RNA: c-di-GMP-I riboswitch aptamer
RNA sequence: CAGUGAUAAAGGCAAACCUAUUGAAAGGUAGGGACGCAAAGCUACAGGCCUAAGGAUUUUCUACGGCAGCUGGGUUACCAAU
Numbered sequence: 001c002a003g004u005g006a007u008a009a010a011g012g013c014a015a016a017c018c019u020a021u022u023g024a025a026a027g028g029u030a031g032g033g034a035c036g037c038a039a040a041g042c043u044a045c046a047g048g049c050c051u052a053a054g055g056a057u058u059u060u061c062u063a064c065g066g067c068a069g070c071u072g073g074g075u076u077a078c079c080a081a082u
Base pairs, nucleotide, nucleotide: 012037013036017032018031019030020029021028022027040076041075042074043073045072046071047070048067049066050065055061056060